[Rfam]
RNA: Group II catalytic intron D1-D4-3
RNA sequence: UUCGCGGCGACGCGAAAUCUGAAGGAAGCGAGCGGCAAACCUCCGGUCUGAGGAACACGAACUUCAUAUAAGGCUAGGUACAAUUGGGUGAGUUUGCCUAACAAAACAAAACCCUUUCUGCCAAAGGUUGUACAGAGUAAAUGAAGCAGAUAGAUGGAGGGAAAGACUACGUUC
Numbered sequence: 001u002u003c004g005c006g007g008c009g010a011c012g013c014g015a016a017a018u019c020u021g022a023a024g025g026a027a028g029c030g031a032g033c034g035g036c037a038a039a040c041c042u043c044c045g046g047u048c049u050g051a052g053g054a055a056c057a058c059g060a061a062c063u064u065c066a067u068a069u070a071a072g073g074c075u076a077g078g079u080a081c082a083a084u085u086g087g088g089u090g091a092g093u094u095u096g097c098c099u100a101a102c103a104a105a106a107c108a109a110a111a112c113c114c115u116u117u118c119u120g121c122c123a124a125a126g127g128u129u130g131u132a133c134a135g136a137g138u139a140a141a142u143g144a145a146g147c148a149g150a151u152a153g154a155u156g157g158a159g160g161g162a163a164a165g166a167c168u169a170c171g172u173u174c
Base pairs, nucleotide, nucleotide: 001016002015003014004013005012006011028174030172032170036165040160041159042158043157044156045155046151047150048149049148050147062146063145064144065143066142067141073138074137075136078133079132080131081130082129083128086114087113088112089111092107093106094105095104